Source information
Rfam assigns this 118-nucleotide RNA sequence from Pelecanoides urinatrix to the family "Small nucleolar RNA SNORA61". NCBI's taxonomy places the organism under Eukaryota, Chordata, Sarcopterygii, Neoaves, Pelecanoides.

Nucleotides: 118
Base pairs, nucleotide, nucleotide: 003059004058005057006056007055019046020045021044022043025040026039027038028037076107078105079104081102082101087097088096
Number, partner (000 for none) and nucleotide at each position: 001000u002000c003059c004058c005057u006056c007055c008000a009000g010000a011000u012000c013000c014000c015000u016000u017000u018000c019046c020045c021044a022043u023000g024000g025040g026039a027038u028037c029000u030000g031000a032000a033000u034000a035000c036000c037028g038027a039026u040025c041000u042000u043022g044021u045020g046019g047000u048000c049000g050000a051000a052000a053000a054000a055007g056006g057005a058004g059003g060000a061000a062000a063000a064000c065000u066000a067000a068000a069000a070000u071000u072000c073000a074000a075000a076107c077000u078105g079104g080000u081102c082101u083000c084000g085000g086000c087097c088096u089000c090000u091000u092000u093000g094000u095000g096088g097087g098000u099000g100000c101082g102081g103000u104079c105078c106000u107076g108000c109000u110000c111000u112000g113000a114000g115000a116000g117000g118000g
ACA61 is a member of the H/ACA class of snoRNA that guide the sites of modification of uridines to pseudouridines.
By type it is an H/ACA-box small nucleolar RNA.
Pairs were carried over by alignment from the consensus structure, which was predicted with PFOLD.
Rfam 15.1 lists 881 matches to the family in 421 species.